[Rfam]
RNA sequence: GGAUGUGAGGGCAGUCUGGCUGCAACCUCUGUCACCCCACUGAUGACCAGGUUGAUUGAGCUGACCCGGCUGGUCCGGUGGGUGUCCACUUCCUCCUCAGUGCUCCAUGUGCAUCCCUACCAAAGCUGCACCCUGGUUGAAGAGGGUGAUCUUCCCCAUGGAGAUGGUGCUGUUCAUCGGUCAAGGGUAAACAAUAGCCCUGCCCCCUGCUAGAACCAACCUCCAAACAAGCUCAAGGUUUUUGGCUAUUUAUGCUGUAACUGCAGUUUCUCUAAAGAUUUUGCAGUGACCUGCCAGAGAGCUAAAGAAAAUAUUUUCUGAGUGG
Number, nucleotide and partner (000 for none) at each position: 001g106002g105003a104004u000005g000006u099007g098008a097009g096010g095011g094012c000013a091014g090015u000016c000017u000018g089019g000020c000021u000022g000023c000024a000025a085026c084027c000028u082029c081030u080031g079032u078033c077034a000035c073036c072037c069038c068039a000040c000041u000042g066043a000044u064045g000046a000047c060048c000049a000050g000051g000052u000053u000054g000055a000056u000057u000058g000059a000060g047061c000062u000063g000064a044065c000066c042067c000068g038069g037070c000071u000072g036073g035074u000075c000076c000077g033078g032079u031080g030081g029082g028083u000084g026085u025086c000087c000088a000089c018090u014091u013092c000093c000094u011095c010096c009097u008098c007099a006100g000101u000102g000103c000104u003105c002106c001107a000108u000109g000110u000111g000112c000113a000114u167115c166116c000117c163118u162119a000120c136121c135122a134123a000124a000125g132126c000127u000128g000129c000130a000131c000132c125133c000134u122135g121136g120137u158138u000139g157140a000141a000142g000143a000144g155145g154146g153147u000148g000149a000150u000151c000152u000153u146154c145155c144156c000157c139158a137159u000160g000161g000162a118163g117164a000165u000166g115167g114168u000169g000170c000171u000172g000173u000174u000175c000176a000177u000178c000179g000180g000181u000182c000183a000184a000185g000186g000187g000188u000189a000190a000191a000192c000193a000194a000195u000196a268197g267198c266199c000200c000201u000202g262203c000204c000205c000206c000207c257208u000209g255210c254211u000212a000213g000214a000215a000216c000217c000218a249219a000220c000221c000222u000223c245224c244225a243226a242227a241228c000229a000230a000231g000232c000233u000234c000235a000236a000237g000238g000239u000240u000241u227242u226243u225244g224245g223246c000247u000248a000249u218250u000251u000252a000253u000254g210255c209256u000257g207258u000259a000260a000261c000262u202263g000264c000265a000266g198267u197268u196269u000270c000271u000272c000273u000274a000275a000276a000277g000278a000279u000280u000281u000282u000283g000284c000285a000286g000287u000288g000289a000290c000291c325292u324293g323294c000295c320296a319297g318298a317299g316300a315301g314302c000303u000304a000305a000306a000307g000308a000309a000310a000311a000312u000313a000314u301315u300316u299317u298318c297319u296320g295321a000322g000323u293324g292325g291